[Rfam]
RNA sequence: ACCUGCCGGGGACGCAGUGAGAGAUGUCCUCGGCACCAGACAGAAACACCGUGCCACGGGAACAAACGCGGCACUUCAGGGCGUU
Numbered sequence: 001a002c003c004u005g006c007c008g009g010g011g012a013c014g015c016a017g018u019g020a021g022a023g024a025u026g027u028c029c030u031c032g033g034c035a036c037c038a039g040a041c042a043g044a045a046a047c048a049c050c051g052u053g054c055c056a057c058g059g060g061a062a063c064a065a066a067c068g069c070g071g072c073a074c075u076u077c078a079g080g081g082c083g084u085u
Stems, first nucleotide, its partner, number of pairs: 004035011051074005057068002
RNA: nrdJ RNA
Organism: Streptomyces sp. SID5789